[Rfam]
RNA: mir-460 microRNA precursor family
RNA sequence: UGUUGAAGCCUCCUCAUUGUGCAUGCUGUGUGUUUUUCUCAGUAUCACACAGCGCCUGCAAUGUGGAGGCUGACGCA
Numbered sequence: 001u002g003u004u005g006a007a008g009c010c011u012c013c014u015c016a017u018u019g020u021g022c023a024u025g026c027u028g029u030g031u032g033u034u035u036u037u038c039u040c041a042g043u044a045u046c047a048c049a050c051a052g053c054g055c056c057u058g059c060a061a062u063g064u065g066g067a068g069g070c071u072g073a074c075g076c077a
Stems, first nucleotide, its partner, number of pairs: 012066002015063007024054001026052006
Dot-bracket structure: ...........((.(((((((..(.((((((...............)))))).)..))))))).))...........